[Rfam]
RNA sequence: CAGGUGGAGUUGAACUGCAAGCCCUGAGGAUUCAGCUGGUGAGUAUGGCAUGAGCCUUGUCAUAUUGGUUUUGUGCACGAGUCCUCUUUUCUGCAAGUCUCCGCUUCGGGGGGAUGCGCGAAUCACUCAUCAGGUGUGGUGCGCUCGGGUACUAGCAGACCUGCUUGCCAGAGCACUUUCUUAGCCUUCACCACGAUCGACGUUUCUGUCGGGCUGUUGCGGUUAAACCGGCUUGGUAGGGUCCUUGUGUCCUUGCUAGGUCGGGAUCGCAGCAAGCCUGUUGUGCUAAUUAUUGUGCUUCGGGUGUCUCAGCCGACUGCUUUGGUUUUGUGCGGUACUUCGGAGACUGCGGCUCUUUGUGCGUGCGGAUGUUCCUGUCACUCCGGCGGCUCUGGGUCUGGAUGCCUUGUUGCUUGUGAAUGCAGGCCAGGUGAUGGCUCGGUGUCGUUCGGUCGGCGGUUGCUUUUGUUGCACUUUGAAGGGGCCCGUAGUCUGUGGUGUAGCUGUAGACUAUCCACCUGGCCCGUCCGGAAACAAUGACCA
Numbered sequence: 001c002a003g004g005u006g007g008a009g010u011u012g013a014a015c016u017g018c019a020a021g022c023c024c025u026g027a028g029g030a031u032u033c034a035g036c037u038g039g040u041g042a043g044u045a046u047g048g049c050a051u052g053a054g055c056c057u058u059g060u061c062a063u064a065u066u067g068g069u070u071u072u073g074u075g076c077a078c079g080a081g082u083c084c085u086c087u088u089u090u091c092u093g094c095a096a097g098u099c100u101c102c103g104c105u106u107c108g109g110g111g112g113g114a115u116g117c118g119c120g121a122a123u124c125a126c127u128c129a130u131c132a133g134g135u136g137u138g139g140u141g142c143g144c145u146c147g148g149g150u151a152c153u154a155g156c157a158g159a160c161c162u163g164c165u166u167g168c169c170a171g172a173g174c175a176c177u178u179u180c181u182u183a184g185c186c187u188u189c190a191c192c193a194c195g196a197u198c199g200a201c202g203u204u205u206c207u208g209u210c211g212g213g214c215u216g217u218u219g220c221g222g223u224u225a226a227a228c229c230g231g232c233u234u235g236g237u238a239g240g241g242u243c244c245u246u247g248u249g250u251c252c253u254u255g256c257u258a259g260g261u262c263g264g265g266a267u268c269g270c271a272g273c274a275a276g277c278c279u280g281u282u283g284u285g286c287u288a289a290u291u292a293u294u295g296u297g298c299u300u301c302g303g304g305u306g307u308c309u310c311a312g313c314c315g316a317c318u319g320c321u322u323u324g325g326u327u328u329u330g331u332g333c334g335g336u337a338c339u340u341c342g343g344a345g346a347c348u349g350c351g352g353c354u355c356u357u358u359g360u361g362c363g364u365g366c367g368g369a370u371g372u373u374c375c376u377g378u379c380a381c382u383c384c385g386g387c388g389g390c391u392c393u394g395g396g397u398c399u400g401g402a403u404g405c406c407u408u409g410u411u412g413c414u415u416g417u418g419a420a421u422g423c424a425g426g427c428c429a430g431g432u433g434a435u436g437g438c439u440c441g442g443u444g445u446c447g448u449u450c451g452g453u454c455g456g457c458g459g460u461u462g463c464u465u466u467u468g469u470u471g472c473a474c475u476u477u478g479a480a481g482g483g484g485c486c487c488g489u490a491g492u493c494u495g496u497g498g499u500g501u502a503g504c505u506g507u508a509g510a511c512u513a514u515c516c517a518c519c520u521g522g523c524c525c526g527u528c529c530g531g532a533a534a535c536a537a538u539g540a541c542c543a
Stems, first nucleotide, its partner, number of pairs: 001521008524539001527536001

Eukaryotic large subunit ribosomal RNA: a 543-nucleotide part of an RNA from Fasciola hepatica. The organism belongs to Fasciola, within Eukaryota.